[Rfam]
RNA sequence: AUAACAAGAACAACAAAUGCCUCACCCAAUAAAAACAACAGACAACGGUUCUGACAUAACAAGAACAACACGGCAGAAGCGUAGCAAGCAGAUCUUUUUGAAGUAGAAGGGUUUUCCCGGGGUCACAGCCCCGCAGCCUGGCACAGAACAAUAAAACUACCCUCAGGUAGCGGCAGCCACGGUUGGAUCAGCAAUGAUGAAUCCCCGACAGCGCUCAAAAAAAUACGUUUGCUCUUGUGCCCCGGAUGGGGGCCACCGCAACACCCGGACACGCCAACAAAAACAACAAUCGGUGUGUCACGAACAAUAAAAAGAGCAGGCAAUCGACUUUGAGGGGAGCUUAGGCUCCCCUCAGUGCUUGGUGCCUUCUUCCUUUUUCUUUUCCU
Numbered sequence: 001a002u003a004a005c006a007a008g009a010a011c012a013a014c015a016a017a018u019g020c021c022u023c024a025c026c027c028a029a030u031a032a033a034a035a036c037a038a039c040a041g042a043c044a045a046c047g048g049u050u051c052u053g054a055c056a057u058a059a060c061a062a063g064a065a066c067a068a069c070a071c072g073g074c075a076g077a078a079g080c081g082u083a084g085c086a087a088g089c090a091g092a093u094c095u096u097u098u099u100g101a102a103g104u105a106g107a108a109g110g111g112u113u114u115u116c117c118c119g120g121g122g123u124c125a126c127a128g129c130c131c132c133g134c135a136g137c138c139u140g141g142c143a144c145a146g147a148a149c150a151a152u153a154a155a156a157c158u159a160c161c162c163u164c165a166g167g168u169a170g171c172g173g174c175a176g177c178c179a180c181g182g183u184u185g186g187a188u189c190a191g192c193a194a195u196g197a198u199g200a201a202u203c204c205c206c207g208a209c210a211g212c213g214c215u216c217a218a219a220a221a222a223a224u225a226c227g228u229u230u231g232c233u234c235u236u237g238u239g240c241c242c243c244g245g246a247u248g249g250g251g252g253c254c255a256c257c258g259c260a261a262c263a264c265c266c267g268g269a270c271a272c273g274c275c276a277a278c279a280a281a282a283a284c285a286a287c288a289a290u291c292g293g294u295g296u297g298u299c300a301c302g303a304a305c306a307a308u309a310a311a312a313a314g315a316g317c318a319g320g321c322a323a324u325c326g327a328c329u330u331u332g333a334g335g336g337g338a339g340c341u342u343a344g345g346c347u348c349c350c351c352u353c354a355g356u357g358c359u360u361g362g363u364g365c366c367u368u369c370u371u372c373c374u375u376u377u378u379c380u381u382u383u384c385c386u
Base pairs, nucleotide, nucleotide: 046081047080049078050077051076052075096220097219098218099217100216111212112211134185135184136183137182138181157170158169159168160167161166239253240252241251242250243249267367268366270364271363272295273294274293316358317357318356332353333352334351335350336349337348338347339346340345

The family of this 386-nucleotide RNA sequence from Pseudomonas cremoricolorata is "Pseudomonas sRNA CrcZ". The family's RNA type in Rfam is small RNA. Rfam 15.1 lists 127 matches to the family in 96 species. The base pairs follow the family's consensus structure, which was predicted with WAR.